nhaA-I RNA: a 56-nucleotide sequence from Roseococcus sp. SYP-B2431. About the family: Acidobacteria, Alphaproteobacteria, Betaproteobacteria and Gammaproteobacteria, Verrucomicrobia, cand. division NC10. Rfam classes the family as a riboswitch. The family's consensus secondary structure is taken from published work.

RNA sequence: GGGUGUCGGCGCUUCACGGGCGUGGACAGGUUUCAGCGUUGGUCGGGCCGCCAACG
Numbered sequence: 001g002g003g004u005g006u007c008g009g010c011g012c013u014u015c016a017c018g019g020g021c022g023u024g025g026a027c028a029g030g031u032u033u034c035a036g037c038g039u040u041g042g043u044c045g046g047g048c049c050g051c052c053a054a055c056g
Stems, first nucleotide, its partner, number of pairs: 005027003009023004037056007